[Rfam]
RNA sequence: CGAGUAAGACAGACGGCCGCCCCUCGUCGAGAGAUGCGGGGAGGAAAGUCCGAGCACCGCAGGGCAGGGUGCCGGGUAACACCCGGUGGAGGCGACUCCAAGGAAAGUGCAACAGAAAGAUACCGCCCGUCGCGAGUCGGGUAAGGAUGGAAAGGCGAGGUAAGAGCUCACCGACGGCUUGGCGACUUGUCCGUCAUGUAAACCCCACCUGGUGCAAGAUUGAAAUGGGAGCAUAUAAUAGCGGCCCGCUACGCUCCUGGAAAUCGCAUGAGCCCACCGGCAACGAUGGGCCAGAGAUAGAUGGUCGUCCUUAGACAGAACUCGGCUUACGGCUUGCUCGCAAC
Number, nucleotide and partner (000 for none) at each position: 001c340002g339003a338004g337005u336006a335007a334008g333009a000010c331011a000012g309013a308014c307015g306016g305017c304018c303019g000020c041021c040022c039023c038024u000025c036026g035027u034028c033029g000030a000031g000032a000033g028034a027035u026036g025037c000038g023039g022040g021041g020042a000043g000044g000045a000046a328047a327048g326049u000050c325051c324052g323053a322054g321055c214056a213057c212058c211059g000060c000061a000062g247063g246064g245065c244066a000067g210068g209069g208070u207071g206072c086073c085074g084075g083076g082077u000078a000079a000080c000081a000082c076083c075084c074085g073086g072087u101088g099089g098090a097091g096092g000093c000094g000095a000096c091097u090098c089099c088100a000101a087102g205103g204104a000105a000106a000107g203108u202109g199110c198111a197112a000113c000114a000115g000116a000117a000118a000119g000120a000121u000122a000123c146124c145125g142126c141127c140128c139129g138130u000131c136132g000133c000134g000135a000136g131137u000138c129139g128140g127141g126142u125143a000144a000145g124146g123147a000148u000149g000150g000151a000152a000153a000154g172155g171156c000157g169158a168159g167160g000161u000162a000163a000164g000165a000166g000167c159168u158169c157170a000171c155172c154173g194174a000175c000176g191177g190178c189179u000180u000181g186182g000183c000184g000185a000186c181187u000188u000189g178190u177191c176192c000193g000194u173195c000196a000197u111198g110199u109200a000201a000202a108203c107204c103205c102206c071207a070208c069209c068210u067211g058212g057213u056214g055215c000216a000217a000218g265219a264220u263221u262222g000223a000224a000225a000226u000227g258228g257229g256230a255231g254232c253233a000234u000235a000236u000237a000238a000239u251240a250241g249242c248243g000244g065245c064246c063247c062248g242249c241250u240251a239252c000253g232254c231255u230256c229257c228258u227259g000260g000261a000262a221263a220264u219265c218266g000267c000268a000269u000270g000271a000272g291273c290274c289275c288276a287277c000278c285279g284280g000281c000282a000283a000284c279285g278286a000287u276288g275289g274290g273291c272292c000293a000294g000295a000296g000297a000298u000299a000300g000301a000302u000303g018304g017305u016306c015307g014308u013309c012310c000311u000312u000313a000314g000315a000316c000317a000318g000319a000320a000321c054322u053323c052324g051325g050326c048327u047328u046329a000330c000331g010332g000333c008334u007335u006336g005337c004338u003339c002340g001341c000342a000343a000344c000
RNA: Bacterial RNase P class A